[Rfam]
RNA sequence: CCUCCGUAAUGUGAAAAAGUAUGGGGAAAAGAACCCAGCUAAAUCUCCCACCGAUAGGGAGUUUGGACUAUCUUUUCUAUACCAUA
Numbered sequence: 001c002c003u004c005c006g007u008a009a010u011g012u013g014a015a016a017a018a019g020u021a022u023g024g025g026g027a028a029a030a031g032a033a034c035c036c037a038g039c040u041a042a043a044u045c046u047c048c049c050a051c052c053g054a055u056a057g058g059g060a061g062u063u064u065g066g067a068c069u070a071u072c073u074u075u076u077c078u079a080u081a082c083c084a085u086a
Stems, first nucleotide, its partner, number of pairs: 020086004025078003029074004039066005045061005

Shown here is an 86-nucleotide RNA from Kamiti River virus, a member of the family "Insect-specific Flavivirus 3' UTR cis-acting replication element (CRE)". About the family: Flavi_ISFV_CRE is a Insect specific Flavivirus family. Flavivirus 3' UTR cis-acting replication element (CRE) plays a crucial role in the virus replication and is thought to be needed for the formation of a 'replication complex', it is composed of a small hairpin (sHP) and a larger structural element (3'SL). It has been shown that mutations in sHP are lethal for viruses. On this family, see Zeng et al., J Virol 1998: "Identification of specific nucleotide sequences within the conserved 3'-SL in the dengue type 2 virus genome required for replication". The family's consensus secondary structure was predicted with LocARNA. The source organism's lineage runs through Viruses, Riboviria, Kitrinoviricota, Amarillovirales and Orthoflavivirus. The sequence is in the family's curated seed alignment.